[Rfam]
RNA: mir-2985 microRNA precursor family
Organism: Notothenia coriiceps
RNA sequence: AGCAUUAGGGUGGGUGGAAUAAUAUAACAAUAUCCUCCCUGUUAUAGUAUUCCACCUACCCUGAUGUC
Number, nucleotide and partner (000 for none) at each position: 001a000002g000003c066004a065005u064006u063007a062008g000009g060010g059011u058012g057013g056014g055015u054016g053017g052018a000019a050020u049021a048022a000023u046024a045025u044026a043027a042028c041029a040030a000031u000032a000033u000034c000035c000036u000037c000038c000039c000040u029041g028042u027043u026044a025045u024046a023047g000048u021049a020050u019051u000052c017053c016054a015055c014056c013057u012058a011059c010060c009061c000062u007063g006064a005065u004066g003067u000068c000